[Rfam]
RNA sequence: AUGAGAAUUAUGGGAGAGUACGGAAAAUUAGUCGCCGAAGGAGCAAGUUCCAAAACAACCCAUGGAAUUAAUCUCUCAGGUAAAGGGACCAUAAUUUGACG
Numbered sequence: 001a002u003g004a005g006a007a008u009u010a011u012g013g014g015a016g017a018g019u020a021c022g023g024a025a026a027a028u029u030a031g032u033c034g035c036c037g038a039a040g041g042a043g044c045a046a047g048u049u050c051c052a053a054a055a056c057a058a059c060c061c062a063u064g065g066a067a068u069u070a071a072u073c074u075c076u077c078a079g080g081u082a083a084a085g086g087g088a089c090c091a092u093a094a095u096u097u098g099a100c101g
Stems, first nucleotide, its partner, number of pairs: 006096008020032002023029001034081003037077002041075003047068006

Rfam assigns this 101-nucleotide RNA from Terrihalobacillus insolitus to the family "Glycine riboswitch aptamer". About the family: This family represents the bacterial glycine riboswitch. A search with the family's covariance model found it, with a score of 62 bits.